[Rfam]
RNA: Lysine riboswitch aptamer
RNA sequence: UGAUGAGGUAGAGGUUGCGGCUGUUAUUAGUACAAACUGGGAGAUCAGGAGAGAUUGUUGAUCAGGAUGGAAAGGAACAGCUGCCGAAGCUAAGAUGGGUUCUCCAAUCCUACUGGCUGGGCCUGUACUCGAAUAGGGGCAGGACUGUCACGUCAGUCGCAAAGCUGGCGUGUUGCGCUAUCUUUGUG
Numbered sequence: 001u002g003a004u005g006a007g008g009u010a011g012a013g014g015u016u017g018c019g020g021c022u023g024u025u026a027u028u029a030g031u032a033c034a035a036a037c038u039g040g041g042a043g044a045u046c047a048g049g050a051g052a053g054a055u056u057g058u059u060g061a062u063c064a065g066g067a068u069g070g071a072a073a074g075g076a077a078c079a080g081c082u083g084c085c086g087a088a089g090c091u092a093a094g095a096u097g098g099g100u101u102c103u104c105c106a107a108u109c110c111u112a113c114u115g116g117c118u119g120g121g122c123c124u125g126u127a128c129u130c131g132a133a134u135a136g137g138g139g140c141a142g143g144a145c146u147g148u149c150a151c152g153u154c155a156g157u158c159g160c161a162a163a164g165c166u167g168g169c170g171u172g173u174u175g176c177g178c179u180a181u182c183u184u185u186g187u188g
Stems, first nucleotide, its partner, number of pairs: 006183006017084009033069002037065004088118005095111001097109002119146002122143005128137002149172008